[Rfam]
Rfam assigns this 76-nucleotide RNA sequence from Helicoverpa armigera to the family "mir-971 microRNA precursor family". Lineage of the source: Eukaryota > Opisthokonta > Arthropoda > Amphiesmenoptera > Helicoverpa.

RNA sequence: GUUUCGGUCCACUCUAAGUAUGAACGCCAAGCAUAUUGAUUAGAGUUUGGUGUUCUACCUUACAGUGAACUGCGAA
Numbered sequence: 001g002u003u004u005c006g007g008u009c010c011a012c013u014c015u016a017a018g019u020a021u022g023a024a025c026g027c028c029a030a031g032c033a034u035a036u037u038g039a040u041u042a043g044a045g046u047u048u049g050g051u052g053u054u055c056u057a058c059c060u061u062a063c064a065g066u067g068a069a070c071u072g073c074g075a076a
Base pairs, nucleotide, nucleotide: 006071007070008069010067011066012065013064015062016061017060025052026051027050028049029048030047031046032045